A member of the RNA family "Guanidine-II riboswitch aptamer (mini-ykkC)" from Neorhizobium alkalisoli, 49 nucleotides long.
The literature on the family includes a 2007 paper in Nucleic Acids Res by Weinberg et al., "Identification of 22 candidate structured RNAs in bacteria using the CMfinder comparative genomics pipeline".
The base pairs follow the family's consensus structure, which is taken from published work.
It scores 39 bits against the family's covariance model.
RNA sequence: CGGUGAGGACGACCUCCCCAAAUUGGGUAUGCAUUCCGGGACGGCCCGG
Numbered sequence: 001c002g003g004u005g006a007g008g009a010c011g012a013c014c015u016c017c018c019c020a021a022a023u024u025g026g027g028u029a030u031g032c033a034u035u036c037c038g039g040g041a042c043g044g045c046c047c048g049g
Stems, first nucleotide, its partner, number of pairs: 002019002005016004036049005